[Rfam]
RNA sequence: ACCUGUUGCGGGUGGCGAUCCAGCGGUGCCCGCGACACCAGACAGAACCACGUGCCACGGGGAACAUCGCGGCACUUCAGGGCGUU
Numbered sequence: 001a002c003c004u005g006u007u008g009c010g011g012g013u014g015g016c017g018a019u020c021c022a023g024c025g026g027u028g029c030c031c032g033c034g035a036c037a038c039c040a041g042a043c044a045g046a047a048c049c050a051c052g053u054g055c056c057a058c059g060g061g062g063a064a065c066a067u068c069g070c071g072g073c074a075c076u077u078c079a080g081g082g083c084g085u086u
Base pairs, nucleotide, nucleotide: 004037005036006035007034008033009032010031011030012029013028014027016025017024052075053074054073055072056071058069059068
nrdJ RNA: an 86-nucleotide sequence from Streptomyces zinciresistens. NCBI's taxonomy places the organism under Bacteria, Bacillati, Streptomycetaceae, Streptomyces, Streptomyces zinciresistens. It is one of the family's seed sequences.